[Rfam]
RNA sequence: GGCCGCCGUGAUCCCGGACCUCGGUCCGGACCCUGGACCCUGGCGCAUCUUCCCCGGUGCCAGGUGCCGGGGGCCGGACUGGGAUCCGAGGCCACGGAACAACGAA
Number, nucleotide and partner (000 for none) at each position: 001g000002g000003c000004c000005g000006c000007c000008g000009u000010g093011a000012u091013c090014c000015c088016g087017g086018a085019c000020c083021u082022c081023g080024g079025u078026c077027c076028g075029g074030a000031c072032c071033c070034u069035g068036g067037a000038c000039c064040c063041u062042g061043g060044c059045g058046c057047a000048u000049c000050u000051u000052c000053c000054c000055c000056g000057g046058u045059g044060c043061c042062a041063g040064g039065u000066g000067c036068c035069g034070g033071g032072g031073g000074c029075c028076g027077g026078a025079c024080u023081g022082g021083g020084a000085u018086c017087c016088g015089a000090g013091g012092c000093c010094a000095c000096g000097g000098a000099a000100c000101a000102a000103c000104g000105a000106a000
mraW RNA: a 106-nucleotide RNA sequence from Propionibacterium sp. oral taxon 192. NCBI's taxonomy places the organism under Bacteria, Actinomycetota, Propionibacteriales, Propionibacteriaceae, Propionibacterium sp. oral taxon 192. Pairs were carried over by alignment from the consensus structure, which is taken from published work. Rfam 15.1 lists 851 matches to the family in 821 species. The match comes from Rfam's covariance-model search (67 bits).